[Rfam]
Nucleotides: 116
Stems, first nucleotide, its partner, number of pairs: 006104005011067004016061001017041010048060005072096003077090004
Number, partner (000 for none) and nucleotide at each position: 001000u002000u003000a004000g005000a006104c007103u008102a009101c010100c011067g012066g013065g014064g015000g016061u017041g018040c019039u020038g021037c022036u023035u024034a025033a026032g027000u028000a029000c030000u031000g032026c033025u034024u035023a036022a037021g038020c039019g040018g041017c042000u043000g044000a045000g046000a047000c048060g049059g050058g051057a052056a053000a054000u055000u056052u057051u058050c059049c060048c061016g062000a063000a064014c065013c066012c067011u068000u069000g070000a071000a072096c073095c074094u075000g076000u077090u078089u079088g080087g081000g082000u083000a084000a085000u086000g087080c088079c089078a090077g091000c092000g093000g094074a095073g096072g097000g098000a099000a100010g101009g102008u103007a104006g105000u106000a107000a108000a109000a110000g111000u112000g113000u114000g115000a116000a
A member of the RNA family "TPP riboswitch aptamer (THI element)" from Thermovenabulum gondwanense, 116 nucleotides long.
Lineage of the source: Bacteria > Bacillota > Clostridia > Thermosediminibacterales > Thermovenabulum.